[Rfam]
RNA sequence: AUAAUGAUACUUCCGUCCAGUCACAGCCCCUUAAGAAGGGAUCACGCAAUGAGGGCGGCUCGGAGAGAUCCUCGGAGGGGAUAAAUCCCAUGA
Numbered sequence: 001a002u003a004a005u006g007a008u009a010c011u012u013c014c015g016u017c018c019a020g021u022c023a024c025a026g027c028c029c030c031u032u033a034a035g036a037a038g039g040g041a042u043c044a045c046g047c048a049a050u051g052a053g054g055g056c057g058g059c060u061c062g063g064a065g066a067g068a069u070c071c072u073c074g075g076a077g078g079g080g081a082u083a084a085a086u087c088c089c090a091u092g093a
Base pairs, nucleotide, nucleotide: 012090013058014057015056016055017054018053059077060076061075063073064072065071078089079088080087
The record is a 93-nucleotide sequence, which matches "pemK RNA" in Rfam. It is one of the family's seed sequences. Rfam classes the family as a cis-regulatory element.